The record is a 547-nucleotide part of an RNA from Erithacus rubecula, which matches "Eukaryotic small subunit ribosomal RNA" in Rfam.

[Rfam]
RNA sequence: GUUGCUGCAGUUAAAAAGCUUGUAGUUGGAUCUUGGGAUCGAGCUGGUGGUCCGACGGGAGGCAAGCCACCGCCUGUCCCAGCCCCUGCCUCUCAGCGCCCCCUAAAUGCUCUUAGCUGAGUGUCCAUGGGGCCCGAAGCGUUUACUUUAGAAAAUUAGUGUUCAAAGCAGGCUGGCCACCGGCAUACUGCAGCUAGGAAUAAUGGAAUAGGGCACCAGUUCUAUUUUUUUGUUUUUUUGGUUUUCAGAAACAGGGCCAUGAUUAAGAGGGACGGCUAGGGGCAUUCGUAUUGUGCUGCUAGAGGUGAAAUUCUUAGAUCGGUGCAAGAUGGCCUAGAGCAAAAGCAUUUGCCAAGAAUGCUUUCAUUAAUCAAGAACGAAAGUCGGAGGUUCGAAGACAAUCAGAUACUGUCAUAGUUCCGACCAUAAAUGAUGCCAAUUGGCGAUCCGUCAGCGUUAUUCCCAUGACCCAUUGGGCAGCUCCUGGGAAACCCAAGUCUUUGUGUUCCAGGGGGAGUAUGGUUGCAAAGCUGAAACUUAAAGGAAG
Numbered sequence: 001g002u003u004g005c006u007g008c009a010g011u012u013a014a015a016a017a018g019c020u021u022g023u024a025g026u027u028g029g030a031u032c033u034u035g036g037g038a039u040c041g042a043g044c045u046g047g048u049g050g051u052c053c054g055a056c057g058g059g060a061g062g063c064a065a066g067c068c069a070c071c072g073c074c075u076g077u078c079c080c081a082g083c084c085c086c087u088g089c090c091u092c093u094c095a096g097c098g099c100c101c102c103c104u105a106a107a108u109g110c111u112c113u114u115a116g117c118u119g120a121g122u123g124u125c126c127a128u129g130g131g132g133c134c135c136g137a138a139g140c141g142u143u144u145a146c147u148u149u150a151g152a153a154a155a156u157u158a159g160u161g162u163u164c165a166a167a168g169c170a171g172g173c174u175g176g177c178c179a180c181c182g183g184c185a186u187a188c189u190g191c192a193g194c195u196a197g198g199a200a201u202a203a204u205g206g207a208a209u210a211g212g213g214c215a216c217c218a219g220u221u222c223u224a225u226u227u228u229u230u231u232g233u234u235u236u237u238u239u240g241g242u243u244u245u246c247a248g249a250a251a252c253a254g255g256g257c258c259a260u261g262a263u264u265a266a267g268a269g270g271g272a273c274g275g276c277u278a279g280g281g282g283c284a285u286u287c288g289u290a291u292u293g294u295g296c297u298g299c300u301a302g303a304g305g306u307g308a309a310a311u312u313c314u315u316a317g318a319u320c321g322g323u324g325c326a327a328g329a330u331g332g333c334c335u336a337g338a339g340c341a342a343a344a345g346c347a348u349u350u351g352c353c354a355a356g357a358a359u360g361c362u363u364u365c366a367u368u369a370a371u372c373a374a375g376a377a378c379g380a381a382a383g384u385c386g387g388a389g390g391u392u393c394g395a396a397g398a399c400a401a402u403c404a405g406a407u408a409c410u411g412u413c414a415u416a417g418u419u420c421c422g423a424c425c426a427u428a429a430a431u432g433a434u435g436c437c438a439a440u441u442g443g444c445g446a447u448c449c450g451u452c453a454g455c456g457u458u459a460u461u462c463c464c465a466u467g468a469c470c471c472a473u474u475g476g477g478c479a480g481c482u483c484c485u486g487g488g489a490a491a492c493c494c495a496a497g498u499c500u501u502u503g504u505g506u507u508c509c510a511g512g513g514g515g516a517g518u519a520u521g522g523u524u525g526c527a528a529a530g531c532u533g534a535a536a537c538u539u540a541a542a543g544g545a546a547g
Base pairs, nucleotide, nucleotide: 010508016507018378020376021375025371026370027369269365270364271363272362273360274359277356281353282352283351284350287331288330291327292326293325294324295323296322297321298320302313303312304311339346340345383424384423385422386421387420388419393417397413398412399411400410435506436505439498440497442482443481444480447477448476449475450474454470456469457468458467486493487492512539513538514537521532522531523530524529
A search with the family's covariance model found it, with a score of 1411 bits. Rfam 15.1 lists 75,755 matches to the family in 2,556 species.